[Rfam]
RNA sequence: UAAUUGAUGAAAGUUCAAUUGAGGUAAGAGCCAAGUCGCCUCGUACCUGACAGGCAACUGGUGGAGAGAUCCUAAAGUUGAAGCCCUGUGACAAAGUAUCCCUUCAAGGGGAGCGAGCAAAACAGCAGGCCGUAACAUGA
Numbered sequence: 001u002a003a004u005u006g007a008u009g010a011a012a013g014u015u016c017a018a019u020u021g022a023g024g025u026a027a028g029a030g031c032c033a034a035g036u037c038g039c040c041u042c043g044u045a046c047c048u049g050a051c052a053g054g055c056a057a058c059u060g061g062u063g064g065a066g067a068g069a070u071c072c073u074a075a076a077g078u079u080g081a082a083g084c085c086c087u088g089u090g091a092c093a094a095a096g097u098a099u100c101c102c103u104u105c106a107a108g109g110g111g112a113g114c115g116a117g118c119a120a121a122a123c124a125g126c127a128g129g130c131c132g133u134a135a136c137a138u139g140a
Stems, first nucleotide, its partner, number of pairs: 020043005050089005055080005064071002096114002099112004117133002
RNA: Group II catalytic intron D1-D4-4